[Rfam]
RNA sequence: GUGGCCCUCCUUGGGAGGGGCAGUGGACAUGCCUGUCCACAGGGUGAGGAU
Numbered sequence: 001g002u003g004g005c006c007c008u009c010c011u012u013g014g015g016a017g018g019g020g021c022a023g024u025g026g027a028c029a030u031g032c033c034u035g036u037c038c039a040c041a042g043g044g045u046g047a048g049g050a051u
Stems, first nucleotide, its partner, number of pairs: 005019006023040007
Dot-bracket structure: ....((((((...))))))...(((((((....)))))))...........

Shown here is a 51-nucleotide sequence from Herpetotheres cachinnans, a member of the family "Whalefall-1 RNA". The match comes from Rfam's covariance-model search (38 bits). Taxonomically the source falls in Herpetotheres (Eukaryota, Eumetazoa, Saurischia, Aves). By type it is a small RNA. Rfam 15.1 lists 134 matches to the family in 26 species.